Shown here is a 64-nucleotide RNA from Synechococcus sp. MIT S9508, a member of the family "Cyano-1 RNA". The family's RNA type in Rfam is small RNA. The family has 265 seed sequences and 283 matches in Rfam 15.1. The match comes from Rfam's covariance-model search (57 bits).
[Rfam]
RNA sequence: UUCAUUGUGAGGAGAAAAGCUCACGGGGUGGAAACAAGGACACAUUCCCGCAGAGUUUUCAGAU
Number, nucleotide and partner (000 for none) at each position: 001u000002u000003c000004a000005u000006u000007g000008u000009g000010a000011g000012g000013a000014g000015a000016a059017a058018a057019g056020c055021u054022c053023a000024c000025g049026g048027g047028g045029u044030g043031g000032a000033a000034a000035c000036a000037a000038g000039g000040a000041c000042a000043c030044a029045u028046u000047c027048c026049c025050g000051c000052a000053g022054a021055g020056u019057u018058u017059u016060c000061a000062g000063a000064u000